[Rfam]
About this RNA: The record is a 175-nucleotide sequence from Geotalea uraniireducens, which matches "6S / SsrS RNA" in Rfam. About the family: E. coli 6S RNA was the first non coding RNA to be sequenced, but its function was unknown until recently. It consists of 184 nucleotides that fold into an extended hairpin structure with a large single-stranded internal bulge. The 6S RNA specifically associates with RNA polymerase holoenzyme containing the sigma70 specificity factor. This interaction represses expression from a sigma70-dependent promoter during stationary phase. 6S RNA homologs have recently been identified in most bacterial genomes. Many Gram-positive species have two copies of 6S RNA. In Bacillus subtilis, both copies appear to interact with RNA polymerase holoenzyme containing the housekeeping sigma factor and be expressed during different stages of growth. In many proteobacteria, 6S RNA may be processed from a transcript encoding homologs of the E. coli YgfA protein which is a putative 5-formyltetrahydrofolate cycloligase activity.
RNA sequence: UUCUCUCUGCCCUGUUCGUGAGGUUAGUACGCCCCUGCGGAAUAAUCGAAGAACGGGAGCCUUUUUAAACUGUGGUGUGCUGCCCCUUGCGGGAUUUGCCUGAAGCAGUGUAAAGGAGCCCACCUAUUAGGGAACUCGCUGUGAGGCCCCGAACCAACGGCAUGGUGGAGAGAAU
Numbered sequence: 001u002u003c004u005c006u007c008u009g010c011c012c013u014g015u016u017c018g019u020g021a022g023g024u025u026a027g028u029a030c031g032c033c034c035c036u037g038c039g040g041a042a043u044a045a046u047c048g049a050a051g052a053a054c055g056g057g058a059g060c061c062u063u064u065u066u067a068a069a070c071u072g073u074g075g076u077g078u079g080c081u082g083c084c085c086c087u088u089g090c091g092g093g094a095u096u097u098g099c100c101u102g103a104a105g106c107a108g109u110g111u112a113a114a115g116g117a118g119c120c121c122a123c124c125u126a127u128u129a130g131g132g133a134a135c136u137c138g139c140u141g142u143g144a145g146g147c148c149c150c151g152a153a154c155c156a157a158c159g160g161c162a163u164g165g166u167g168g169a170g171a172g173a174a175u
Stems, first nucleotide, its partner, number of pairs: 002173010013162003017159003031147003034143001035141001037139003055121003060116005067111001069109005079099002084092002

Taxonomically the source falls in Geotalea uraniireducens (Bacteria, Pseudomonadati, Geobacterales, Geotalea). Pairs were carried over by alignment from the consensus structure, which is taken from published work.